This 88-nucleotide RNA sequence from Callorhinchus milii belongs to the Rfam family "mir-204 microRNA precursor family". The family has 60 seed sequences and 1,730 matches in Rfam 15.1. NCBI's taxonomy places the organism under Eukaryota, Vertebrata, Holocephali, Callorhinchidae, Callorhinchus. Rfam links the family to the GO terms RISC complex and miRNA-mediated post-transcriptional gene silencing.
[Rfam]
RNA sequence: GUGUGACCUGUGGGUUUCCCUUUGUCAUCCUAUGCCUGGGAGUAUCAGUGAGGCAGGGGGGACAAAGGGGUGCUCAGCUGUCAACUCC
Numbered sequence: 001g002u003g004u005g006a007c008c009u010g011u012g013g014g015u016u017u018c019c020c021u022u023u024g025u026c027a028u029c030c031u032a033u034g035c036c037u038g039g040g041a042g043u044a045u046c047a048g049u050g051a052g053g054c055a056g057g058g059g060g061g062a063c064a065a066a067g068g069g070g071u072g073c074u075c076a077g078c079u080g081u082c083a084a085c086u087c088c
Stems, first nucleotide, its partner, number of pairs: 017070006024063002028059004034054004

The base pairs follow the family's consensus structure, which was predicted with RNAalifold.